[Rfam]
RNA sequence: AGCUGUCUUCGGGGCGGGGUGAAAGUCCCCACCGGCGGUAACCCUUUCAAACAUGGGAAGCCCGCGAGCUGCUUGCUGAUCUGGUGAGAUUCCAGAGCCGACGGUAUAGUCCGGAUGGAAGAAGAAAAGA
Numbered sequence: 001a002g003c004u005g006u007c008u009u010c011g012g013g014g015c016g017g018g019g020u021g022a023a024a025g026u027c028c029c030c031a032c033c034g035g036c037g038g039u040a041a042c043c044c045u046u047u048c049a050a051a052c053a054u055g056g057g058a059a060g061c062c063c064g065c066g067a068g069c070u071g072c073u074u075g076c077u078g079a080u081c082u083g084g085u086g087a088g089a090u091u092c093c094a095g096a097g098c099c100g101a102c103g104g105u106a107u108a109g110u111c112c113g114g115a116u117g118g119a120a121g122a123a124g125a126a127a128a129g130a
Stems, first nucleotide, its partner, number of pairs: 004127001006125005017029003031110002033100002035065004060098002068076002080096005102113003
FMN riboswitch aptamer (RFN element): a 130-nucleotide RNA sequence from [Clostridium] leptum.
The base pairs follow the family's consensus structure, which is taken from published work.
It is one of the family's seed sequences.